[Rfam]
RNA sequence: AUUCAGCACAUAUGUCAAAUUCCCAGCGAGUUCACCAUUACAAUGUUUCGCUGGUGCCGAAAUUGUGCUAAAAUAGAUGCAGAAAGGUUCUUCCCGUCGUUCGAUGCGUCGAACACUUUUCCCAAGGCUCGUUUUCUUACAGCCAUGGGGUCAAGGGAAGUCCGUUCUUACAG
Numbered sequence: 001a002u003u004c005a006g007c008a009c010a011u012a013u014g015u016c017a018a019a020u021u022c023c024c025a026g027c028g029a030g031u032u033c034a035c036c037a038u039u040a041c042a043a044u045g046u047u048u049c050g051c052u053g054g055u056g057c058c059g060a061a062a063u064u065g066u067g068c069u070a071a072a073a074u075a076g077a078u079g080c081a082g083a084a085a086g087g088u089u090c091u092u093c094c095c096g097u098c099g100u101u102c103g104a105u106g107c108g109u110c111g112a113a114c115a116c117u118u119u120u121c122c123c124a125a126g127g128c129u130c131g132u133u134u135u136c137u138u139a140c141a142g143c144c145a146u147g148g149g150g151u152c153a154a155g156g157g158a159a160g161u162c163c164g165u166u167c168u169u170a171c172a173g
Stems, first nucleotide, its partner, number of pairs: 005069006023054007082167003086163001094156002103117001105115002120150001123147002126144003